RNA sequence: UAAUCAACUCCAUCGUGCAGAGGUUUGAGUGUCCUGUGUCUUGCCAAUCCGCAUUCAAUCUUUGAACGAUAGAUAUGGUCA
Numbered sequence: 001u002a003a004u005c006a007a008c009u010c011c012a013u014c015g016u017g018c019a020g021a022g023g024u025u026u027g028a029g030u031g032u033c034c035u036g037u038g039u040c041u042u043g044c045c046a047a048u049c050c051g052c053a054u055u056c057a058a059u060c061u062u063u064g065a066a067c068g069a070u071a072g073a074u075a076u077g078g079u080c081a
Stems, first nucleotide, its partner, number of pairs: 003079004009073002012070005018064008027056006
RNA: mir-955 microRNA precursor family